[Rfam]
RNA sequence: AGGGUAAGCCGUCCUAUCGCUCCGGUAGAAGUACCGGGGAGGAAAGUCCGGGCAGUGCAGGGCACCGUACUUCCUAACGGGAAGGCGGCAGACGGGUGACGGUCUGCCGACAGCCAGUGCCACAGAAAAGAUACCGCCUGGCAUAAUUUUUAUGUUCGGGUAAGGGUGAAAAGGUGGGGUAAGGGCCCACCGUCCCGCUGGUGACAGGGGGAGCGAGGUAAACCUUACGGACUGAAAGACCAAAUAGGUGCCGGCCAGAAGCGGCCCGCUUCGGUUCCGGCUAGUUCGGAACGUCGGCAUGGGUAGGUCGUUAGAGGCUGCGGGUGACCGUAGUUCGAGAUAAAUGAUAGGAGUUUCGGCCACGUGCCGGAAAACAGAACCCGGCUUACAGGCUUGCUUUUUUU
Numbered sequence: 001a002g003g004g005u006a007a008g009c010c011g012u013c014c015u016a017u018c019g020c021u022c023c024g025g026u027a028g029a030a031g032u033a034c035c036g037g038g039g040a041g042g043a044a045a046g047u048c049c050g051g052g053c054a055g056u057g058c059a060g061g062g063c064a065c066c067g068u069a070c071u072u073c074c075u076a077a078c079g080g081g082a083a084g085g086c087g088g089c090a091g092a093c094g095g096g097u098g099a100c101g102g103u104c105u106g107c108c109g110a111c112a113g114c115c116a117g118u119g120c121c122a123c124a125g126a127a128a129a130g131a132u133a134c135c136g137c138c139u140g141g142c143a144u145a146a147u148u149u150u151u152a153u154g155u156u157c158g159g160g161u162a163a164g165g166g167u168g169a170a171a172a173g174g175u176g177g178g179g180u181a182a183g184g185g186c187c188c189a190c191c192g193u194c195c196c197g198c199u200g201g202u203g204a205c206a207g208g209g210g211g212a213g214c215g216a217g218g219u220a221a222a223c224c225u226u227a228c229g230g231a232c233u234g235a236a237a238g239a240c241c242a243a244a245u246a247g248g249u250g251c252c253g254g255c256c257a258g259a260a261g262c263g264g265c266c267c268g269c270u271u272c273g274g275u276u277c278c279g280g281c282u283a284g285u286u287c288g289g290a291a292c293g294u295c296g297g298c299a300u301g302g303g304u305a306g307g308u309c310g311u312u313a314g315a316g317g318c319u320g321c322g323g324g325u326g327a328c329c330g331u332a333g334u335u336c337g338a339g340a341u342a343a344a345u346g347a348u349a350g351g352a353g354u355u356u357c358g359g360c361c362a363c364g365u366g367c368c369g370g371a372a373a374a375c376a377g378a379a380c381c382c383g384g385c386u387u388a389c390a391g392g393c394u395u396g397c398u399u400u401u402u403u404u
Base pairs, nucleotide, nucleotide: 001400002399003398004397005396006395007394008393009392010391011389012352013351014350015349016348017347018346020039021038022037023036024035025034026033027032044387045386046385048384049383050382051381052380053234054233055232056231060287061286062285063284065230066229067228068227069226070084071083072082073081074080085111086109087108088107089106090105091104092103093102112225113224117223118222119219120218121217134165135164136161137160138159139158140157141155142154143153144152173191174190175189176188177187178186192214193212194211195210196209198207199206200205238309239308240307241306248300249299250298251297252296253295279292282289316335317334318333319332320331321330322329323328
Background
The record is a 404-nucleotide RNA sequence from Persicitalea jodogahamensis, which matches "Bacterial RNase P class A" in Rfam. Taxonomically the source falls in Persicitalea (Bacteria, Cytophagia, Cytophagales, Spirosomataceae). It scores 273 bits against the family's covariance model.